[Rfam]
RNA sequence: GUAUCCGUGUCCUGACAACAUUCCCCGCAAACAUGACAUGGGUUAAUUUAAACAUGUUUUGUUUGCUUGGGAAUGCUCUUAGGGCCUGGAAGC
Numbered sequence: 001g002u003a004u005c006c007g008u009g010u011c012c013u014g015a016c017a018a019c020a021u022u023c024c025c026c027g028c029a030a031a032c033a034u035g036a037c038a039u040g041g042g043u044u045a046a047u048u049u050a051a052a053c054a055u056g057u058u059u060u061g062u063u064u065g066c067u068u069g070g071g072a073a074u075g076c077u078c079u080u081a082g083g084g085c086c087u088g089g090a091a092g093c
Stems, first nucleotide, its partner, number of pairs: 004090004009085007019075007027066007035058004

mir-BART19 microRNA precursor family: a 93-nucleotide RNA sequence from Lymphocryptovirus humangamma4. Its family is annotated with RISC complex and miRNA-mediated post-transcriptional gene silencing in the Gene Ontology. Taxonomically the source falls in Lymphocryptovirus humangamma4 (Viruses, Duplodnaviria, Heunggongvirae, Peploviricota). The family's consensus secondary structure was predicted with RNAalifold.